Rfam assigns this 81-nucleotide sequence from Alligator mississippiensis to the family "Mammalian CPEB3 ribozyme". A search with the family's covariance model found it, with a score of 43 bits. NCBI's taxonomy places the organism under Eukaryota, Eumetazoa, Dipnotetrapodomorpha, Tetrapoda, Alligator.
[Rfam]
RNA sequence: AGAGGUCACAAGUUUGUGACCAUAGCAGAAGUACUCACAACUCAGCCCUGUCAGAUUCCAAGUGAAUCUGUGAAUUCUGCU
Numbered sequence: 001a002g003a004g005g006u007c008a009c010a011a012g013u014u015u016g017u018g019a020c021c022a023u024a025g026c027a028g029a030a031g032u033a034c035u036c037a038c039a040a041c042u043c044a045g046c047c048c049u050g051u052c053a054g055a056u057u058c059c060a061a062g063u064g065a066a067u068c069u070g071u072g073a074a075u076u077c078u079g080c081u
Base pairs, nucleotide, nucleotide: 016048018047020045024081025080026079027078028077029076030075031043052070053069054068055067056066057065058064